[Rfam]
RNA sequence: GCGGUACCGGUUCACGCCUCCUGUAUCACUCAUGGCCCUGUCGGGUUCGAUCGGCCAUGUGACCCGGAGGCGCCCGGCGACC
Numbered sequence: 001g002c003g004g005u006a007c008c009g010g011u012u013c014a015c016g017c018c019u020c021c022u023g024u025a026u027c028a029c030u031c032a033u034g035g036c037c038c039u040g041u042c043g044g045g046u047u048c049g050a051u052c053g054g055c056c057a058u059g060u061g062a063c064c065c066g067g068a069g070g071c072g073c074c075c076g077g078c079g080a081c082c
Base pairs, nucleotide, nucleotide: 003082004081005080007077008076009075010074015072016071017070018069019068020067021066023064
This 82-nucleotide sequence from Actinomadura sp. KC345 belongs to the Rfam family "L31-Actinobacteria ribosomal protein leader". Clan: Ribosomal Protein L31 Leader clan.